[Rfam]
RNA sequence: AAACGUUCAACUCGUUGCAUAGCGAGCCGCAUCUCGAUUUAAGCCAAGGAACGGGGACUUAAA
Numbered sequence: 001a002a003a004c005g006u007u008c009a010a011c012u013c014g015u016u017g018c019a020u021a022g023c024g025a026g027c028c029g030c031a032u033c034u035c036g037a038u039u040u041a042a043g044c045c046a047a048g049g050a051a052c053g054g055g056g057a058c059u060u061a062a063a
Stems, first nucleotide, its partner, number of pairs: 004053005011026004038063006044056002